[Rfam]
RNA sequence: UAAACAGGAACUCAGGUAAAGAGCACCGCGUCCUGCGGCAAUACGUGAGUGACCGGCUUCAGCCGG
Numbered sequence: 001u002a003a004a005c006a007g008g009a010a011c012u013c014a015g016g017u018a019a020a021g022a023g024c025a026c027c028g029c030g031u032c033c034u035g036c037g038g039c040a041a042u043a044c045g046u047g048a049g050u051g052a053c054c055g056g057c058u059u060c061a062g063c064c065g066g
Base pairs, nucleotide, nucleotide: 011049012048013047014046016044017043026038027037028036029035053066054065055064056063057062
Dot-bracket structure: ..........((((.((........((((.....))))....)).))))...(((((....)))))
Shown here is a 66-nucleotide sequence from Domibacillus mangrovi, a member of the family "Bacillaceae-1 RNA". The base pairs follow the family's consensus structure, which is taken from published work. The family's RNA type in Rfam is small RNA.